[Rfam]
RNA sequence: UGCAGCCCAGUCAAAUUCGGUGCCGUCCCCCCGUGGCGGGCACCGGCCACCGGCUGCCACAGCACCUCCGUGGCCGCCUGCCCCGGGUCCCCUCCCGUGGGGCCCGGGCGGCGAAUCCCA
Numbered sequence: 001u002g003c004a005g006c007c008c009a010g011u012c013a014a015a016u017u018c019g020g021u022g023c024c025g026u027c028c029c030c031c032c033g034u035g036g037c038g039g040g041c042a043c044c045g046g047c048c049a050c051c052g053g054c055u056g057c058c059a060c061a062g063c064a065c066c067u068c069c070g071u072g073g074c075c076g077c078c079u080g081c082c083c084c085g086g087g088u089c090c091c092c093u094c095c096c097g098u099g100g101g102g103c104c105c106g107g108g109c110g111g112c113g114a115a116u117c118c119c120a
Stems, first nucleotide, its partner, number of pairs: 002057004018045007025037003071120003082108005
This 120-nucleotide RNA sequence from Lonchura striata belongs to the Rfam family "Small nucleolar RNA SNORA5". It scores 40 bits against the family's covariance model. Lineage of the source: Eukaryota > Vertebrata > Sarcopterygii > Tetrapoda > Lonchura. Rfam's curators write: ACA5 is a member of the H/ACA class of snoRNA that guide the sites of modification of uridines to pseudouridines. Gene Ontology terms of the family: RNA processing and nucleolus.